[Rfam]
RNA: c-di-AMP riboswitch aptamer (ydaO/yuaA leader)
RNA sequence: CUCCCUAUCGCGCCGAGCUCCAUCCAAUAGGCGGGGGAAACCGAAAGUGGAUGGAGGCGGGGGACCCACCGGUCCACCGCGAUCGGACUGGAGUCGCUUGCGGCUCCUCGGGGUGAAGCCGGCGCCGUCUCCCAUGGGAGGGCGACGCCGGCCGGGUAGCCUCUCCAACCCGAACCCGACAGCUGACCUCGCAGGCGCGUUACGAGAGAGGAA
Number, nucleotide and partner (000 for none) at each position: 001c000002u000003c000004c000005c000006u000007a000008u000009c000010g000011c197012g196013c195014c194015g000016a000017g000018c056019u055020c054021c053022a052023u051024c050025c049026a048027a000028u000029a000030g000031g000032c000033g000034g000035g000036g000037g000038a000039a000040a000041c000042c000043g000044a000045a000046a000047g000048u026049g025050g024051a023052u022053g021054g020055a019056g018057g192058c191059g190060g189061g188062g187063g000064a000065c000066c000067c110068a000069c000070c000071g000072g000073u000074c000075c000076a000077c000078c000079g000080c000081g000082a000083u000084c000085g000086g000087a000088c000089u000090g000091g000092a000093g000094u000095c000096g000097c000098u000099u000100g000101c000102g000103g000104c000105u000106c000107c000108u000109c000110g067111g177112g176113g175114u000115g000116a000117a000118g000119c151120c150121g149122g148123c147124g146125c000126c000127g000128u000129c000130u000131c000132c000133c000134a000135u000136g000137g000138g000139a000140g000141g000142g000143c000144g000145a000146c124147g123148c122149c121150g120151g119152c000153c000154g171155g170156g169157u168158a000159g000160c000161c000162u000163c000164u000165c000166c000167a000168a157169c156170c155171c154172g000173a000174a000175c113176c112177c111178g000179a000180c000181a000182g000183c000184u000185g000186a000187c062188c061189u060190c059191g058192c057193a000194g014195g013196c012197g011198c000199g000200u000201u000202a000203c000204g000205a000206g000207a000208g000209a000210g000211g000212a000213a000